Shown here is a 62-nucleotide RNA sequence from Equus caballus, a member of the family "U7 small nuclear RNA". The source organism's lineage runs through Eukaryota, Metazoa, Eumetazoa, Mammalia and Equus. About the family: Animal histone pre-mRNAs are spliced by a different mechanism than nuclear pre-mRNAs and self-splicing introns. This processing involves the U7 snRNP, which contains only one RNA species: U7. Pairs were carried over by alignment from the consensus structure, which was predicted with PFOLD.
RNA sequence: GAGUGUUGCAGCUCUUUCAGAAUUUGUCUUGCAGGUUUUCCGGUCCUCCCUGGAAGACCUCC
Numbered sequence: 001g002a003g004u005g006u007u008g009c010a011g012c013u014c015u016u017u018c019a020g021a022a023u024u025u026g027u028c029u030u031g032c033a034g035g036u037u038u039u040c041c042g043g044u045c046c047u048c049c050c051u052g053g054a055a056g057a058c059c060u061c062c
Base pairs, nucleotide, nucleotide: 034059035058036057037056038055039054040053041052042051043050